[Rfam]
Guanidine-I riboswitch aptamer: a 177-nucleotide RNA from Pleurocapsales cyanobacterium LEGE 06147. The base pairs follow the family's consensus structure. The match comes from Rfam's covariance-model search (68 bits). The organism belongs to Pleurocapsales, within Bacteria.

RNA sequence: GCUGAUAGCUUCUAGGGUUCCGGUUUAAGAAUUUCGAGGAAAUAGCUUUUGUGAACAACAAUUAACUAUUAUCUGAUUUCCAAGAGACUUAGACGGCUGGACCGAGAGAGGCAAGCUAAUCUUGAAGUAUUUUCUAACCUCAAGAUAGCUACACGGCGGGAUAAAAGCCCGGGAGAG
Numbered sequence: 001g002c003u004g005a006u007a008g009c010u011u012c013u014a015g016g017g018u019u020c021c022g023g024u025u026u027a028a029g030a031a032u033u034u035c036g037a038g039g040a041a042a043u044a045g046c047u048u049u050u051g052u053g054a055a056c057a058a059c060a061a062u063u064a065a066c067u068a069u070u071a072u073c074u075g076a077u078u079u080c081c082a083a084g085a086g087a088c089u090u091a092g093a094c095g096g097c098u099g100g101a102c103c104g105a106g107a108g109a110g111g112c113a114a115g116c117u118a119a120u121c122u123u124g125a126a127g128u129a130u131u132u133u134c135u136a137a138c139c140u141c142a143a144g145a146u147a148g149c150u151a152c153a154c155g156g157c158g159g160g161a162u163a164a165a166a167g168c169c170c171g172g173g174a175g176a177g
Stems, first nucleotide, its partner, number of pairs: 008112005015103002020100002022097001023094006114150005120144001152172001154175001158170003